[Rfam]
RNA: SAM-I/IV (S-adenosyl methionine) riboswitch aptamer
Organism: Novosphingobium sp. BW1
RNA sequence: AUCCAGCAUCAAGAGUUGGGGCGACGCCCAACGCCAACCUGCCGUUCCGGGCAAGGUGGUACUCCGCAAGGAGGAUGUGGCCGUCCCGGCAAGCAAACGGACACGC
Numbered sequence: 001a002u003c004c005a006g007c008a009u010c011a012a013g014a015g016u017u018g019g020g021g022c023g024a025c026g027c028c029c030a031a032c033g034c035c036a037a038c039c040u041g042c043c044g045u046u047c048c049g050g051g052c053a054a055g056g057u058g059g060u061a062c063u064c065c066g067c068a069a070g071g072a073g074g075a076u077g078u079g080g081c082c083g084u085c086c087c088g089g090c091a092a093g094c095a096a097a098c099g100g101a102c103a104c105g106c
Base pairs, nucleotide, nucleotide: 006078007077008076009075010074015032016031017030018029019028020027033060034059035058038056039055040054041052042051043050046101047100048099049098080090081089082088083087
Dot-bracket structure: .....(((((....((((((......))))))(((..((((((..[[[[))).))).))).............))))).((((...)))).......]]]].....